This 131-nucleotide sequence from Sinocyclocheilus rhinocerous belongs to the Rfam family "Small Cajal body specific RNA 8". Lineage of the source: Eukaryota > Metazoa > Teleostomi > Actinopterygii > Sinocyclocheilus. From the family's description: scaRNAs are a specific class of small nuclear RNAs which localise to the Cajal bodies and guide the modification of RNA polymerase II transcribed spliceosomal RNAs U1, U2, U4, U5 and U12. U92 belong to the H/ACA box class of guide RNAs as it has the predicted hairpin-hinge-hairpin-tail structure, conserved H/ACA-box motifs and is found associated with GAR1. Gene Ontology terms of the family: Cajal body, nucleolus and RNA processing. The match comes from Rfam's covariance-model search (127 bits). It is annotated as a small Cajal body RNA. Pairs were carried over by alignment from the consensus structure, which is taken from published work.

[Rfam]
RNA sequence: UGGGAAACUGAUACAUGGGCAGUCCUGAGCAGUGCUCUACCCAACACAAGUUUUCCCUAUAUCAAACCUGCUCUCUGAUGACCGGUGCGAAUUGAGAGAAAUCGCCACGGACAGAUACGGAGCAGACAUUU
Numbered sequence: 001u002g003g004g005a006a007a008c009u010g011a012u013a014c015a016u017g018g019g020c021a022g023u024c025c026u027g028a029g030c031a032g033u034g035c036u037c038u039a040c041c042c043a044a045c046a047c048a049a050g051u052u053u054u055c056c057c058u059a060u061a062u063c064a065a066a067c068c069u070g071c072u073c074u075c076u077g078a079u080g081a082c083c084g085g086u087g088c089g090a091a092u093u094g095a096g097a098g099a100a101a102u103c104g105c106c107a108c109g110g111a112c113a114g115a116u117a118c119g120g121a122g123c124a125g126a127c128a129u130u131u
Stems, first nucleotide, its partner, number of pairs: 002057006016043003022037001025034001068125007082110003087105004
Dot-bracket structure: .((((((........(((...(..(........)..)...)))........))))))..........(((((((.......(((..((((...........))))..)))........)))))))......